RNA sequence: GCUGCUCGAAAAAUGCACACCGCUACGAGGUGAGCAGCAGACAACACAGCAGAGACUGUGGCUAAGAGGCAAGA
Number, nucleotide and partner (000 for none) at each position: 001g038002c037003u036004g035005c034006u033007c032008g000009a000010a000011a000012a000013a000014u000015g000016c000017a000018c000019a031020c030021c029022g000023c000024u000025a000026c000027g000028a000029g021030g020031u019032g007033a006034g005035c004036a003037g002038c001039a000040g000041a000042c000043a000044a000045c060046a059047c058048a057049g056050c000051a000052g000053a000054g000055a000056c049057u048058g047059u046060g045061g000062c000063u000064a000065a000066g000067a000068g000069g000070c000071a000072a000073g000074a000
Rfam assigns this 74-nucleotide RNA sequence from Ruminococcus sp. CAG:353 to the family "HDV ribozyme from F. prausnitzii".
Gene Ontology term of the family: catalytic activity.
Rfam 15.1 lists 3,803 matches to the family in 91 species.
NCBI's taxonomy places the organism under Bacteria, Bacillati, Clostridia, Eubacteriales, Ruminococcus.